[Rfam]
RNA sequence: CAGCUUCCUGCUUCAACAGUGCUUGAACCGAACCG
Numbered sequence: 001c002a003g004c005u006u007c008c009u010g011c012u013u014c015a016a017c018a019g020u021g022c023u024u025g026a027a028c029c030g031a032a033c034c035g
Stems, first nucleotide, its partner, number of pairs: 001035001003033001005032003010028001012027005017021001
The record is a 35-nucleotide RNA from Cervus hanglu, which matches "Iron response element I" in Rfam.
A reference for the family is Huang et al. (1999), "An atypical iron-responsive element (IRE) within crayfish ferritin mRNA and an iron regulatory protein 1 (IRP1)-like protein from crayfish hepatopancreas", Insect Biochem Mol Biol.
The family's RNA type in Rfam is cis-regulatory element.
Rfam 15.1 lists 6,829 matches to the family in 599 species.
Its family is annotated with response to iron ion in the Gene Ontology.
Taxonomically the source falls in Cervus hanglu (Eukaryota, Opisthokonta, Metazoa, Teleostomi).
The base pairs follow the family's consensus structure, which is taken from published work.